[Rfam]
RNA sequence: ACUUCAGUGGACGUUCCGCUUCCGGGGCCUGCCAGGGUCCCGGGGAAACUCCCCAGACCCACGGCAGAGAGUGUCGGGCGAUAGUGCCUCAGCCGUCCCCAUAGUCGCAUCCUGACGAGGAAGCUUAGGCCGAGUCUGCGGCGGGAAAGUGCUGGCCACUGGGAUGUUACUAAUGUCAUAGUCAAGUAAUGCGGAAGCUUGGCGGUAACAGAAUGGGGGCUACGUUCUACUGAGU
Numbered sequence: 001a002c003u004u005c006a007g008u009g010g011a012c013g014u015u016c017c018g019c020u021u022c023c024g025g026g027g028c029c030u031g032c033c034a035g036g037g038u039c040c041c042g043g044g045g046a047a048a049c050u051c052c053c054c055a056g057a058c059c060c061a062c063g064g065c066a067g068a069g070a071g072u073g074u075c076g077g078g079c080g081a082u083a084g085u086g087c088c089u090c091a092g093c094c095g096u097c098c099c100c101a102u103a104g105u106c107g108c109a110u111c112c113u114g115a116c117g118a119g120g121a122a123g124c125u126u127a128g129g130c131c132g133a134g135u136c137u138g139c140g141g142c143g144g145g146a147a148a149g150u151g152c153u154g155g156c157c158a159c160u161g162g163g164a165u166g167u168u169a170c171u172a173a174u175g176u177c178a179u180a181g182u183c184a185a186g187u188a189a190u191g192c193g194g195a196a197g198c199u200u201g202g203c204g205g206u207a208a209c210a211g212a213a214u215g216g217g218g219g220c221u222a223c224g225u226u227c228u229a230c231u232g233a234g235u
Base pairs, nucleotide, nucleotide: 003234004233005232006231007230008229009228010227011226014196015195016194017193018192019191022043023042024041025040026039027038028037029036030035047221049219051218052217053216054215063075064074065073066072076089078087079086080085091153092152093151096149099145100144104142105141106140114136115135116134123130124129198205199204
The family of this 235-nucleotide sequence from Chionoecetes opilio is "RNase MRP". The source organism's lineage runs through Eukaryota, Eumetazoa, Arthropoda, Decapoda and Chionoecetes. The literature on the family includes a 2005 paper in Biochem Biophys Res Commun by Walker and Avis, "Secondary structure probing of the human RNase MRP RNA reveals the potential for MRP RNA subsets". Gene Ontology terms of the family: ribonuclease MRP complex, rRNA processing and ribonuclease MRP activity.